[Rfam]
RNA: Alphaproteobacterial ar15
RNA sequence: AGCUGAUGCACAUGACGGUCACCUCCCAGUUCCGUCGCAGCAGCUGUUCCCCUCUGGAGGUUACAGAUCUCCACAUUUCAUGGGCCGCGGCUUUUGCCGGCGGCCCUUUUU
Numbered sequence: 001a002g003c004u005g006a007u008g009c010a011c012a013u014g015a016c017g018g019u020c021a022c023c024u025c026c027c028a029g030u031u032c033c034g035u036c037g038c039a040g041c042a043g044c045u046g047u048u049c050c051c052c053u054c055u056g057g058a059g060g061u062u063a064c065a066g067a068u069c070u071c072c073a074c075a076u077u078u079c080a081u082g083g084g085c086c087g088c089g090g091c092u093u094u095u096g097c098c099g100g101c102g103g104c105c106c107u108u109u110u111u
Stems, first nucleotide, its partner, number of pairs: 001045005007039003015035004055073007082106006088099004